[Rfam]
RNA sequence: GGACUCGGCUUGCUGAGGUGCACACAGCAAGAGGCGAGAG
Numbered sequence: 001g002g003a004c005u006c007g008g009c010u011u012g013c014u015g016a017g018g019u020g021c022a023c024a025c026a027g028c029a030a031g032a033g034g035c036g037a038g039a040g
Stems, first nucleotide, its partner, number of pairs: 004038004009031007
The record is a 40-nucleotide RNA from Lentivirus humimdef1, which matches "Human immunodeficiency virus type 1 dimerisation initiation site" in Rfam.
The base pairs follow the family's consensus structure, which is taken from published work.
The literature on the family includes a 1997 paper in J Virol by McBride and Panganiban, "Position dependence of functional hairpins important for human immunodeficiency virus type 1 RNA encapsidation in vivo".
This cis element is composed of four hairpins called SL1 to SL4 (SL is for Stem Loop). This element is involved in encapsidation of the retroviral RNA an essential step in replication. It is found in HIV, SIV and CIV. It has been shown that SL1 may provide a secondary binding site for Rev. SL1, SL2, SL3 and SL4 have been independently expressed and structurally characterised.
The source organism's lineage runs through Viruses, Revtraviricetes, Ortervirales, Lentivirus and Lentivirus humimdef1.